RNA sequence: GCCUCGUUAGCUCAGUGGCAGAGCGUCUGUCUCGUAAACAGAAGGCCGCUGGUUCGAUCCCAGCACGAGGCA
Numbered sequence: 001g002c003c004u005c006g007u008u009a010g011c012u013c014a015g016u017g018g019c020a021g022a023g024c025g026u027c028u029g030u031c032u033c034g035u036a037a038a039c040a041g042a043a044g045g046c047c048g049c050u051g052g053u054u055c056g057a058u059c060c061c062a063g064c065a066c067g068a069g070g071c072a
Stems, first nucleotide, its partner, number of pairs: 001071007010024004026042005048064005